[Rfam]
Shown here is an 89-nucleotide RNA from Camellia sinensis, a member of the family "Small nucleolar RNA snoR109". By type it is an H/ACA-box small nucleolar RNA. The match comes from Rfam's covariance-model search (42 bits). NCBI's taxonomy places the organism under Eukaryota, Tracheophyta, Mesangiospermae, Theaceae, Camellia. A reference for the family is Marker et al. (2002), "Experimental RNomics: identification of 140 candidates for small non-messenger RNAs in the plant Arabidopsis thaliana", Curr Biol.

RNA sequence: GGGUUAUCACAGUAUCAUAAAUAGAAGUUUUACUGGCCGGUUGUUGUUUAUUUCCGUCAACACCUCUAUUUAUCGAGCUUCUUACAUCU
Number, nucleotide and partner (000 for none) at each position: 001g000002g000003g000004u000005u000006a000007u000008c000009a000010c000011a000012g000013u000014a000015u000016c000017a000018u000019a000020a000021a000022u000023a082024g081025a080026a079027g078028u077029u076030u000031u000032a000033c000034u000035g070036g069037c000038c000039g066040g065041u000042u000043g061044u060045u059046g058047u000048u000049u000050a000051u000052u000053u000054c000055c000056g000057u000058c046059a045060a044061c043062a000063c000064c000065u040066c039067u000068a000069u036070u035071u000072a000073u000074c000075g000076a029077g028078c027079u026080u025081c024082u023083u000084a000085c000086a000087u000088c000089u000